Background: Shown here is a 48-nucleotide RNA sequence, a member of the family "gut-2 RNA". Rfam's curators put it in the seed alignment. The family's RNA type in Rfam is small RNA.
[Rfam]
RNA sequence: AUCCAUCGGAUAAUUGGAUUCGGUGAAGGGCUAAUCGGAGCUGGAGAU
Numbered sequence: 001a002u003c004c005a006u007c008g009g010a011u012a013a014u015u016g017g018a019u020u021c022g023g024u025g026a027a028g029g030g031c032u033a034a035u036c037g038g039a040g041c042u043g044g045a046g047a048u
Stems, first nucleotide, its partner, number of pairs: 004025008029042004